MIR812 microRNA precursor family: a 199-nucleotide sequence from Oryza brachyantha.

[Rfam]
RNA sequence: AAUAAACGAAUUUCUGAGUUUUUGGAUAAAAUUUUUAACUAUUCGUCUUAUUUGAAAAAUUUUUAUGAUUAAUAUUUUUAUUGUUACUACGUGAUAAAACAUGAAUAGUACUUCACAUAUGAUUAUUUUUUUUAAAUCUUUUAAUAAAUUUUUUAAAUAAGACGGAUGGUCAAACGCUAAAUCUAGAGAAACCCAAAAA
Numbered sequence: 001a002a003u004a005a006a007c008g009a010a011u012u013u014c015u016g017a018g019u020u021u022u023u024g025g026a027u028a029a030a031a032u033u034u035u036u037a038a039c040u041a042u043u044c045g046u047c048u049u050a051u052u053u054g055a056a057a058a059a060u061u062u063u064u065a066u067g068a069u070u071a072a073u074a075u076u077u078u079u080a081u082u083g084u085u086a087c088u089a090c091g092u093g094a095u096a097a098a099a100c101a102u103g104a105a106u107a108g109u110a111c112u113u114c115a116c117a118u119a120u121g122a123u124u125a126u127u128u129u130u131u132u133u134a135a136a137u138c139u140u141u142u143a144a145u146a147a148a149u150u151u152u153u154u155a156a157a158u159a160a161g162a163c164g165g166a167u168g169g170u171c172a173a174a175c176g177c178u179a180a181a182u183c184u185a186g187a188g189a190a191a192c193c194c195a196a197a198a199a
Base pairs, nucleotide, nucleotide: 027181030178032176034174035173036172038170039169040168041167042166043165044164045163046162047161048160049159050158051157
Description
The base pairs follow the family's consensus structure, which was predicted with RNAalifold.